Shown here is an 82-nucleotide RNA sequence from Kibdelosporangium aridum, a member of the family "ZMP/ZTP riboswitch aptamer (pfl RNA motif)". The family's consensus secondary structure is taken from published work.

[Rfam]
RNA sequence: AGCCCGGGUCGUGACUGGCGUUGAGGUGGAGUACCACCGGGGAGCGGCCCCACCGAGCUUGCCGCGCGCCUGGGCGAUUUCC
Numbered sequence: 001a002g003c004c005c006g007g008g009u010c011g012u013g014a015c016u017g018g019c020g021u022u023g024a025g026g027u028g029g030a031g032u033a034c035c036a037c038c039g040g041g042g043a044g045c046g047g048c049c050c051c052a053c054c055g056a057g058c059u060u061g062c063c064g065c066g067c068g069c070c071u072g073g074g075c076g077a078u079u080u081c082c
Stems, first nucleotide, its partner, number of pairs: 006050007015041002017070005026037004059077005